[Rfam]
RNA: A. fumigatus sRNA Afu_309
RNA sequence: UCCUUUUUACAACCCACGGAUCUGUGCCCGAUUGUCCUCUGUUCGCAUCGCGAAUUCAGAGUUGAUGGUCGAGGCAGCUCGAAUCACAUAUGGAAUCAUCCUCUUUUUUAUGAUGUCUAUCCAAUCGACAGGUCCUAGAGUAAGGAGCAGUUCCGGAAAGCCUGAGUUCGCCGUCAAAAGCUGUAACUCGGUGGUCUGGUCUUGCUCCAGGAGUUAUAUUCCACCCCUUUUUUCCGAGAUCAUUGAUCUAUGAGGUUGAGGAAAACCAUAAGAUACCCUACAUAC
Numbered sequence: 001u002c003c004u005u006u007u008u009a010c011a012a013c014c015c016a017c018g019g020a021u022c023u024g025u026g027c028c029c030g031a032u033u034g035u036c037c038u039c040u041g042u043u044c045g046c047a048u049c050g051c052g053a054a055u056u057c058a059g060a061g062u063u064g065a066u067g068g069u070c071g072a073g074g075c076a077g078c079u080c081g082a083a084u085c086a087c088a089u090a091u092g093g094a095a096u097c098a099u100c101c102u103c104u105u106u107u108u109u110a111u112g113a114u115g116u117c118u119a120u121c122c123a124a125u126c127g128a129c130a131g132g133u134c135c136u137a138g139a140g141u142a143a144g145g146a147g148c149a150g151u152u153c154c155g156g157a158a159a160g161c162c163u164g165a166g167u168u169c170g171c172c173g174u175c176a177a178a179a180g181c182u183g184u185a186a187c188u189c190g191g192u193g194g195u196c197u198g199g200u201c202u203u204g205c206u207c208c209a210g211g212a213g214u215u216a217u218a219u220u221c222c223a224c225c226c227c228u229u230u231u232u233u234c235c236g237a238g239a240u241c242a243u244u245g246a247u248c249u250a251u252g253a254g255g256u257u258g259a260g261g262a263a264a265a266c267c268a269u270a271a272g273a274u275a276c277c278c279u280a281c282a283u284a285c
Stems, first nucleotide, its partner, number of pairs: 018135008026075003029071003033067004037061005043054001044052003084127001086125001092117002095114003146206003160192003164189005169183001170181002211278001213276001214271004227261004234255002238248004
Dot-bracket structure: .................((((((((((((((.(((((((((.((((...))).)..)))))..)))).))).)))........(.(.....((.(((..............))).)).......).)))))))))..........(((...........(((.((((((((........)).).))))))))...........)))....(.(((((.........((((...((..((((...)))).....))..))))......))))....).).......